[Rfam]
RNA sequence: ACAGAGGUAGCCGAAAAUCUAUAAAAGAGUAGGCU
Numbered sequence: 001a002c003a004g005a006g007g008u009a010g011c012c013g014a015a016a017a018u019c020u021a022u023a024a025a026a027g028a029g030u031a032g033g034c035u
Base pairs, nucleotide, nucleotide: 003020004019005018010034011033012032
Shown here is a 35-nucleotide sequence, a member of the family "DUF805b RNA". Rfam's curators put it in the seed alignment. It is annotated as a cis-regulatory element.